[Rfam]
RNA sequence: GGGGGGAGCCGGGAUCCUGGGCUGUGUCCAGGUGCCCAGUGUCCCCGGGCCUGCGCUGCUGGGAUUCGCGCUCCUGGCCGCUUAGCCGCCU
Number, nucleotide and partner (000 for none) at each position: 001g091002g090003g089004g000005g087006g086007a000008g000009c000010c000011g000012g079013g078014a000015u000016c077017c076018u000019g074020g073021g072022c000023u070024g069025u068026g067027u064028c063029c062030a000031g057032g056033u055034g054035c053036c000037c000038a000039g051040u000041g050042u049043c048044c000045c000046c000047g000048g043049g042050c041051c039052u000053g035054c034055g033056c032057u031058g000059c000060u000061g000062g029063g028064a027065u000066u000067c026068g025069c024070g023071c000072u021073c020074c019075u000076g017077g016078c013079c012080g000081c000082u000083u000084a000085g000086c006087c005088g000089c003090c002091u001

The family of this 91-nucleotide RNA sequence from Vulpes vulpes is "mir-8799 microRNA precursor family". Rfam 15.1 lists 20,638 matches to the family in 5 species. The family is grouped with related families in Rfam's "mir-8791 microRNA precursor clan". Taxonomically the source falls in Vulpes (Eukaryota, Vertebrata, Gnathostomata, Euteleostomi). Rfam links the family to the GO terms miRNA-mediated post-transcriptional gene silencing and RISC complex.